The record is a 121-nucleotide RNA sequence, which matches "Guanidine-I riboswitch aptamer" in Rfam. Rfam links the family to the GO term regulation of gene expression.
[Rfam]
RNA sequence: AUGUAUGGAAACUAGGGUUCCGGUUCGCAAUUCAUUUAAGUAAAAAUAAGCGAAUGUCUGGUCCGAGAGUUUCCGGUCUCAUCAUAGUGAGAUUCCACGGAGGGAUAAAAACCCGGGAGGC
Numbered sequence: 001a002u003g004u005a006u007g008g009a010a011a012c013u014a015g016g017g018u019u020c021c022g023g024u025u026c027g028c029a030a031u032u033c034a035u036u037u038a039a040g041u042a043a044a045a046a047u048a049a050g051c052g053a054a055u056g057u058c059u060g061g062u063c064c065g066a067g068a069g070u071u072u073c074c075g076g077u078c079u080c081a082u083c084a085u086a087g088u089g090a091g092a093u094u095c096c097a098c099g100g101a102g103g104g105a106u107a108a109a110a111a112c113c114c115g116g117g118a119g120g121c
Stems, first nucleotide, its partner, number of pairs: 007074006015064002020061002022058001023055006075094008096116001098119001102114003